[Rfam]
RNA sequence: UUUUUUUUUUUUUUGCUGCUAUAGUCUCCCAGUGAUAUGAGCAGUUGUACGCAUGCGAUAAAAUAAUAUUAGACCAUUGUAAAUUGAGAUGAAGUAACCAUUUUCAUCUCUUCUGUGUGUACUAGACAUUG
Numbered sequence: 001u002u003u004u005u006u007u008u009u010u011u012u013u014u015g016c017u018g019c020u021a022u023a024g025u026c027u028c029c030c031a032g033u034g035a036u037a038u039g040a041g042c043a044g045u046u047g048u049a050c051g052c053a054u055g056c057g058a059u060a061a062a063a064u065a066a067u068a069u070u071a072g073a074c075c076a077u078u079g080u081a082a083a084u085u086g087a088g089a090u091g092a093a094g095u096a097a098c099c100a101u102u103u104u105c106a107u108c109u110c111u112u113c114u115g116u117g118u119g120u121a122c123u124a125g126a127c128a129u130u131g
Stems, first nucleotide, its partner, number of pairs: 003058002006055001008053001015045006022037002025035002069125004075119002078117004086110005091104005
Rfam assigns this 131-nucleotide sequence from Carlito syrichta to the family "Small nucleolar RNA SNORA20". The family has 17 seed sequences and 437 matches in Rfam 15.1. Lineage of the source: Eukaryota > Tetrapoda > Eutheria > Euarchontoglires > Carlito. The family is grouped with related families in Rfam's "SNORA20 clan".